The family of this 116-nucleotide sequence from Parapedobacter luteus is "SAM riboswitch aptamer (S box leader)". The match comes from Rfam's covariance-model search (74 bits).
Nucleotides: 116
Base pairs, nucleotide, nucleotide: 002115003114004113005112006111007110008109013042014041015040016039017038021031022030023029025081027079028078043073044072045071046070048069049068051064052063053062077108082105083104084103085102086101087100
Number, partner (000 for none) and nucleotide at each position: 001000g002115g003114u004113u005112u006111a007110u008109a009000a010000a011000g012000a013042a014041g015040u016039g017038g018000c019000g020000a021031g022030a023029g024000a025081c026000u027079g028078g029023c030022u031021c032000a033000a034000u035000g036000a037000c038017c039016c040015a041014c042013u043073g044072g045071c046070a047000a048069c049068c050000a051064u052063c053062u054000g055000a056000a057000g058000c059000g060000a061000c062053g063052g064051a065000a066000a067000a068049g069048g070046u071045g072044c073043c074000a075000a076000a077108u078028c079027c080000u081025g082105u083104c084103c085102c086101a087100a088000c089000c090000a091000a092000c093000a094000u095000u096000g097000u098000u099000g100087u101086u102085g103084g104083g105082a106000g107000c108077a109008u110007a111006u112005a113004a114003a115002u116000a